[Rfam]
RNA sequence: AUUUUUUUAUGAUGAGAUACCAUUAGUUAUCCCUGUCUGAACUGUAACUGUUGAGAAAAAACACCUCUGAAAAAAUU
Number, nucleotide and partner (000 for none) at each position: 001a077002u000003u075004u074005u073006u072007u071008u000009a000010u000011g000012a000013u000014g000015a000016g000017a000018u000019a000020c000021c000022a000023u000024u000025a000026g000027u000028u000029a000030u000031c000032c000033c000034u000035g000036u000037c000038u000039g000040a000041a000042c000043u000044g000045u000046a000047a000048c000049u000050g000051u000052u000053g000054a000055g000056a000057a000058a000059a000060a000061a000062c000063a000064c000065c000066u000067c000068u000069g000070a000071a007072a006073a005074a004075a003076u000077u001
RNA: Small nucleolar RNA R38